[Rfam]
RNA sequence: GCAUUCCGACCUGAGACCUCGGUUCUGAGCUGGGAUGUGGCUACUGAGCUGGGGUGUCUGGGGUCUUGGUUCAGGGUCG
Numbered sequence: 001g002c003a004u005u006c007c008g009a010c011c012u013g014a015g016a017c018c019u020c021g022g023u024u025c026u027g028a029g030c031u032g033g034g035a036u037g038u039g040g041c042u043a044c045u046g047a048g049c050u051g052g053g054g055u056g057u058c059u060g061g062g063g064u065c066u067u068g069g070u071u072c073a074g075g076g077u078c079g
Base pairs, nucleotide, nucleotide: 003077004076005075006074008072011069012068013067014066015065016064017063018062019061020060021058022057024054025053026052028050029049030048031047
Shown here is a 79-nucleotide RNA from Pteropus vampyrus, a member of the family "mir-769 microRNA precursor family". Rfam links the family to the GO terms RISC complex and miRNA-mediated post-transcriptional gene silencing. Lineage of the source: Eukaryota > Chordata > Teleostomi > Pteropodoidea > Pteropus.